[Rfam]
RNA sequence: CCCACCGGGGAGGAUGAGCUCGUCUCCUUUAUCCUAGCAGGUCUUGACAUGGAGUACAACCCUCUCAUUUCUGCUCUAGAUACCCGUACUGAACCAAUUUCUCUUGAUGCGCUCUAUGGUCAGAUGGCCAACUUCGAUC
Dot-bracket structure: ...(.(((...............................................................................(.(((...........))).).........................))).).

A member of the RNA family "Small nucleolar RNA Z247" from Triticum urartu, 139 nucleotides long.
Its family is annotated with RNA processing and nucleolus in the Gene Ontology.
The match comes from Rfam's covariance-model search (43 bits).
Rfam classes the family as a C/D-box small nucleolar RNA.
For this family Rfam cites "The high diversity of snoRNAs in plants: identification and comparative study of 120 snoRNA genes from Oryza sativa" (Chen et al., Nucleic Acids Res, 2003).
The family's consensus secondary structure was predicted with PFOLD.